[Rfam]
RNA sequence: GCCUCGUGAAAGACUCGGGUAGUGAGAUGUCCAUGUACAUCAAAAAUUCUCACUACCUUGUCUUUCAUGAGGAU
Numbered sequence: 001g002c003c004u005c006g007u008g009a010a011a012g013a014c015u016c017g018g019g020u021a022g023u024g025a026g027a028u029g030u031c032c033a034u035g036u037a038c039a040u041c042a043a044a045a046a047u048u049c050u051c052a053c054u055a056c057c058u059u060g061u062c063u064u065u066c067a068u069g070a071g072g073a074u
Base pairs, nucleotide, nucleotide: 008066009065010064011063012062013061014060017058018057019056021054022053023052024051025050026049027048
RNA: mir-71 microRNA precursor family